About this RNA
Shown here is a 129-nucleotide RNA sequence from Erythranthe lutea, a member of the family "Plastid-psbA-1 3UTR RNA". Rfam's curators put it in the seed alignment. From the family's description: Plastid psbA-1 is a non-coding RNA (ncRNA) present in plastids. It was identified in inverted repeat sequences in the 3 prime untranslate region (3UTR) of photosystem II quinone-binding protein (psbA).

[Rfam]
RNA sequence: UCGAAGCUCCAACAAAUGGAUAAGACUUGGUCUUAGUAUAUAGGAGUUUUUGCAAAUAGAACAUAUAAAUAAUAAAUAUAAGGAGCAAUAAGCCCUCUUGAUAGAACAAGAAAGAGUUUAUUGCUCCUU
Numbered sequence: 001u002c003g004a005a006g007c008u009c010c011a012a013c014a015a016a017u018g019g020a021u022a023a024g025a026c027u028u029g030g031u032c033u034u035a036g037u038a039u040a041u042a043g044g045a046g047u048u049u050u051u052g053c054a055a056a057u058a059g060a061a062c063a064u065a066u067a068a069a070u071a072a073u074a075a076a077u078a079u080a081a082g083g084a085g086c087a088a089u090a091a092g093c094c095c096u097c098u099u100g101a102u103a104g105a106a107c108a109a110g111a112a113a114g115a116g117u118u119u120a121u122u123g124c125u126c127c128u129u
Stems, first nucleotide, its partner, number of pairs: 008020003080129012093116001095114001096111004